This 199-nucleotide sequence from Arabis nemorensis belongs to the Rfam family "U2 spliceosomal RNA". The organism belongs to Arabis, within Eukaryota. Its family is annotated with mRNA branch site recognition, pre-mRNA branch point binding and U2 snRNP in the Gene Ontology.
RNA sequence: AUACCUUUCUCGGCCUUUUGGCUAAGAUCAAGUGUAGUAUCUGUUUUUAUCAGUUUAAUAUCUGAUAUGUGGGCCAUUGGUUCACACGAUAUUAACUCUAUUUUUUUAAGGGAGAAAGGCCCAUUAAGAUGGCUUGCUAUCUGGGCUAUUAACGAGUCGCCCAUGCGUUGCACUACAGCACGGGCCUGGCUCAACCCAC
Numbered sequence: 001a002u003a004c005c006u007u008u009c010u011c012g013g014c015c016u017u018u019u020g021g022c023u024a025a026g027a028u029c030a031a032g033u034g035u036a037g038u039a040u041c042u043g044u045u046u047u048u049a050u051c052a053g054u055u056u057a058a059u060a061u062c063u064g065a066u067a068u069g070u071g072g073g074c075c076a077u078u079g080g081u082u083c084a085c086a087c088g089a090u091a092u093u094a095a096c097u098c099u100a101u102u103u104u105u106u107u108a109a110g111g112g113a114g115a116a117a118g119g120c121c122c123a124u125u126a127a128g129a130u131g132g133c134u135u136g137c138u139a140u141c142u143g144g145g146c147u148a149u150u151a152a153c154g155a156g157u158c159g160c161c162c163a164u165g166c167g168u169u170g171c172a173c174u175a176c177a178g179c180a181c182g183g184g185c186c187u188g189g190c191u192c193a194a195c196c197c198a199c
Stems, first nucleotide, its partner, number of pairs: 008027003012023004048067006069085007115150002118147005129140004154192006161183002164180003